RNA sequence: ACGGCCUAAUUGUAUAGGUCUCGUAUAAAGCCGGGGAUAGGGCCCGGAGGUUUCUACCCGAAAACCGUAAAUUUUCGGACUACGAGGGAACAGGGCAAGUCA
Number, nucleotide and partner (000 for none) at each position: 001a000002c000003g000004g000005c000006c000007u000008a000009a000010u000011u000012g000013u000014a000015u000016a000017g000018g000019u087020c086021u085022c084023g083024u082025a081026u000027a000028a000029a000030g000031c047032c046033g045034g044035g043036g000037a000038u000039a000040g000041g000042g000043c035044c034045c033046g032047g031048a000049g000050g000051u000052u000053u000054c000055u000056a000057c000058c078059c077060g076061a075062a074063a073064a072065c000066c000067g000068u000069a000070a000071a000072u064073u063074u062075u061076c060077g059078g058079a000080c000081u025082a024083c023084g022085a021086g020087g019088g000089a000090a000091c000092a000093g000094g000095g000096c000097a000098a000099g000100u000101c000102a000
This 102-nucleotide sequence from Paenibacillus algicola belongs to the Rfam family "Purine riboswitch aptamer".